[Rfam]
RNA sequence: UCCACGAAAAGGCAAAGCUGCCGCGAGGUAGUGACGCAAAGCCAUGGGACCCACGAGGUUCGCCAGGCUGCCGAA
Numbered sequence: 001u002c003c004a005c006g007a008a009a010a011g012g013c014a015a016a017g018c019u020g021c022c023g024c025g026a027g028g029u030a031g032u033g034a035c036g037c038a039a040a041g042c043c044a045u046g047g048g049a050c051c052c053a054c055g056a057g058g059u060u061c062g063c064c065a066g067g068c069u070g071c072c073g074a075a
Stems, first nucleotide, its partner, number of pairs: 012037002017032006040069004045065003048060003
Dot-bracket structure: ...........((...((((((....))))))...))..((((.((((((.......)))..)))))))......

The record is a 75-nucleotide RNA from Cellulomonas cellasea, which matches "c-di-GMP-I riboswitch aptamer" in Rfam.